[Rfam]
RNA: mir-2774 microRNA precursor family
Organism: Bombyx mori
RNA sequence: ACAAUAUUCGGACCGUCGGUCUACCGAGCAAUAUCACCCGCUCGGUGGAAAAUACUUAACAAAUAUU
Numbered sequence: 001a002c003a004a005u006a007u008u009c010g011g012a013c014c015g016u017c018g019g020u021c022u023a024c025c026g027a028g029c030a031a032u033a034u035c036a037c038c039c040g041c042u043c044g045g046u047g048g049a050a051a052a053u054a055c056u057u058a059a060c061a062a063a064u065a066u067u
Base pairs, nucleotide, nucleotide: 004064005063011057012056015053016052020049021048022047023046024045025044026043027042028041029040